[Rfam]
Source information: The family of this 139-nucleotide sequence from Lepisosteus oculatus is "Small nucleolar RNA SNORA14". ACA14 is a member of the H/ACA class of snoRNA that guide the sites of modification of uridines to pseudouridines. The family has 18 seed sequences and 848 matches in Rfam 15.1. Rfam links the family to the GO terms RNA processing and nucleolus. It is annotated as an H/ACA-box small nucleolar RNA.
RNA sequence: AAGCAUUCUUAUAAACCCCCUGGCAGCACUGAUCUCACCUGCUGGGACAAGAAAGGAUGCGAUAGCAAGAGAGCUGGGUUUCAUCCAAAGCCAAGGGCCUUUUCCCGUGACCCUUCGCUAUUUCAAAUCCCAGACAUUA
Numbered sequence: 001a002a003g004c005a006u007u008c009u010u011a012u013a014a015a016c017c018c019c020c021u022g023g024c025a026g027c028a029c030u031g032a033u034c035u036c037a038c039c040u041g042c043u044g045g046g047a048c049a050a051g052a053a054a055g056g057a058u059g060c061g062a063u064a065g066c067a068a069g070a071g072a073g074c075u076g077g078g079u080u081u082c083a084u085c086c087a088a089a090g091c092c093a094a095g096g097g098c099c100u101u102u103u104c105c106c107g108u109g110a111c112c113c114u115u116c117g118c119u120a121u122u123u124c125a126a127a128u129c130c131c132a133g134a135c136a137u138u139a
Stems, first nucleotide, its partner, number of pairs: 003060004009052002012050001019046005025040002069138002074133005089119003093115003097111001102107001
Dot-bracket structure: ..((((..((.(......(((((.((............)).)))))...)))....))))........((...(((((..........(((.(((.(....(....)...).))).))).........)))))...)).